[Rfam]
RNA: mir-5928 microRNA precursor family
Organism: Haemonchus placei
RNA sequence: GGCACAAACUCGAAGUAGAGUAGUUCAGUAGAGUCGAAUGAUCCUCCUAAUCUACUCUACUUCAAAUUUGGGCCC
Number, nucleotide and partner (000 for none) at each position: 001g074002g073003c072004a000005c070006a069007a068008a067009c000010u000011c000012g063013a062014a061015g060016u059017a058018g057019a056020g055021u054022a053023g052024u000025u050026c000027a048028g047029u000030a045031g000032a000033g042034u041035c040036g000037a000038a000039u000040g035041a034042u033043c000044c000045u030046c000047c028048u027049a000050a025051u000052c023053u022054a021055c020056u019057c018058u017059a016060c015061u014062u013063c012064a000065a000066a000067u008068u007069u006070g005071g000072g003073c002074c001075c000